[Rfam]
RNA sequence: GUAUGAAUGUGAUCUUAUAUAUAUUGGUAAUAAGAAAGUUGUGUAUAAUAAGAUAUAUAUAUUGCUAUUCAUAUAAUGUAGUUACUUAUUUAAGUUUAAGGUGCAAGAUGCUACGAGGCAGCCCCUCACAAAUCUAGUACAACACAACAGCGCAUAACCUAUGGGUGUAAGUUAUGUUUAAAUCGCACCCGCAACAA
Dot-bracket structure: (((((((((......(((((((((......(........[..........).)))))))))....)))))))))...[[[[[.((((....)))).....((((.((((]]]]]((((.....))))....)))).))))......].....((((((.(([[[[[[)).)))))).........]]]]]]......
Numbered sequence: 001g002u003a004u005g006a007a008u009g010u011g012a013u014c015u016u017a018u019a020u021a022u023a024u025u026g027g028u029a030a031u032a033a034g035a036a037a038g039u040u041g042u043g044u045a046u047a048a049u050a051a052g053a054u055a056u057a058u059a060u061a062u063u064g065c066u067a068u069u070c071a072u073a074u075a076a077u078g079u080a081g082u083u084a085c086u087u088a089u090u091u092a093a094g095u096u097u098a099a100g101g102u103g104c105a106a107g108a109u110g111c112u113a114c115g116a117g118g119c120a121g122c123c124c125c126u127c128a129c130a131a132a133u134c135u136a137g138u139a140c141a142a143c144a145c146a147a148c149a150g151c152g153c154a155u156a157a158c159c160u161a162u163g164g165g166u167g168u169a170a171g172u173u174a175u176g177u178u179u180a181a182a183u184c185g186c187a188c189c190c191g192c193a194a195c196a197a
Stems, first nucleotide, its partner, number of pairs: 001074009016061009031051001040147001078114005084095004101140004106135004115127004153176006160169002162191006